RNA sequence: UGCCCGGUGCUGGCAGCUAAAAGGGAGGGGUAAAAUCGAAAUUUUCGAAAAAGCUCUCAACUGAAGGUCCAGUAAACGGCGGCCGUAACUCUGACGGUCCUAAGGUAGCGAAAUUCCUU
Numbered sequence: 001u002g003c004c005c006g007g008u009g010c011u012g013g014c015a016g017c018u019a020a021a022a023g024g025g026a027g028g029g030g031u032a033a034a035a036u037c038g039a040a041a042u043u044u045u046c047g048a049a050a051a052a053g054c055u056c057u058c059a060a061c062u063g064a065a066g067g068u069c070c071a072g073u074a075a076a077c078g079g080c081g082g083c084c085g086u087a088a089c090u091c092u093g094a095c096g097g098u099c100c101u102a103a104g105g106u107a108g109c110g111a112a113a114u115u116c117c118u119u
Stems, first nucleotide, its partner, number of pairs: 002080003007077002009073005016068003023061001081099006100104001
The record is a 119-nucleotide part of an RNA from Coccomyxa sp. Obi, which matches "Archaeal large subunit ribosomal RNA" in Rfam. Taxonomically the source falls in Coccomyxa (Eukaryota, core chlorophytes, Trebouxiophyceae, Coccomyxaceae). Its family is annotated with structural constituent of ribosome and ribosome in the Gene Ontology.